[Rfam]
RNA sequence: AUCAGAUCGAUGAUGUUAUUGAAAAACUGCGUUAUCUAUCUUAAGAUCUCCGUAAUAGGAGUUGCAGAUACUAAACAGAAUCGCUGAGAUCUGAU
Numbered sequence: 001a002u003c004a005g006a007u008c009g010a011u012g013a014u015g016u017u018a019u020u021g022a023a024a025a026a027c028u029g030c031g032u033u034a035u036c037u038a039u040c041u042u043a044a045g046a047u048c049u050c051c052g053u054a055a056u057a058g059g060a061g062u063u064g065c066a067g068a069u070a071c072u073a074a075a076c077a078g079a080a081u082c083g084c085u086g087a088g089a090u091c092u093g094a095u
Stems, first nucleotide, its partner, number of pairs: 001095007